[Rfam]
RNA sequence: AAGGAAAAAAGAGCCAUCUUGAUGACCAGAGGUUGAAUACGGGUAGAACAUGCUUUAAGAAAUCUUGAAGGGGAGGGUGGCCGAGAGGGCUUUGCAAGAAUAAGGCCCUCUGCUGUUAAAUCAAAGUUGUUUGUGCUGAAUGAAUAUCUACAUUUUGAAUUCUUUUUGUCUC
Number, nucleotide and partner (000 for none) at each position: 001a000002a000003g000004g000005a000006a167007a166008a165009a164010a163011g162012a000013g081014c080015c079016a078017u077018c076019u075020u074021g000022a000023u000024g000025a000026c000027c000028a000029g066030a065031g064032g063033u062034u061035g000036a000037a000038u000039a000040c000041g000042g000043g000044u000045a000046g000047a000048a000049c000050a000051u000052g000053c000054u000055u000056u000057a000058a000059g000060a000061a034062a033063u032064c031065u030066u029067g000068a000069a000070g000071g000072g000073g000074a020075g019076g018077g017078u016079g015080g014081c013082c000083g000084a000085g110086a109087g108088g107089g106090c105091u104092u103093u102094g101095c000096a000097a000098g000099a000100a000101u094102a093103a092104g091105g090106c089107c088108c087109u086110c085111u000112g134113c133114u000115g131116u000117u129118a128119a127120a000121u000122c126123a000124a000125a000126g122127u119128u118129g117130u000131u115132u000133g113134u112135g000136c157137u000138g155139a154140a153141u152142g151143a000144a000145u000146a000147u000148c000149u000150a000151c142152a141153u140154u139155u138156u000157g136158a000159a000160u000161u000162c011163u010164u009165u008166u007167u006168g000169u000170c000171u000172c000
A member of the RNA family "Lysine riboswitch aptamer", 172 nucleotides long. The family's consensus secondary structure is taken from published work. Rfam's curators write: Riboswitches are metabolite binding domains within certain messenger RNAs that serve as precision sensors for their corresponding targets. Allosteric rearrangement of mRNA structure is mediated by ligand binding, and this results in modulation of gene expression. This family includes riboswitches that sense lysine in a number of genes involved in lysine metabolism, including lysC.